[Rfam]
RNA sequence: ACAACCUGGUCGGAUCGGACCUCCACUGGUUUUCUCUUCAGUGAUAUUUCAAGAAUGAUUAUCACCGGGUGAAAAUCAGGGCAGGUCCGAUCCACCCGA
Numbered sequence: 001a002c003a004a005c006c007u008g009g010u011c012g013g014a015u016c017g018g019a020c021c022u023c024c025a026c027u028g029g030u031u032u033u034c035u036c037u038u039c040a041g042u043g044a045u046a047u048u049u050c051a052a053g054a055a056u057g058a059u060u061a062u063c064a065c066c067g068g069g070u071g072a073a074a075a076u077c078a079g080g081g082c083a084g085g086u087c088c089g090a091u092c093c094a095c096c097c098g099a
Stems, first nucleotide, its partner, number of pairs: 016089007024081001026079009036069002039067001041065006

Shown here is a 99-nucleotide sequence from Caenorhabditis latens, a member of the family "mir-36 microRNA precursor family". The match comes from Rfam's covariance-model search (76 bits). A reference for the family is Ohler et al. (2004), "Patterns of flanking sequence conservation and a characteristic upstream motif for microRNA gene identification", RNA. Its family is annotated with miRNA-mediated post-transcriptional gene silencing and RISC complex in the Gene Ontology.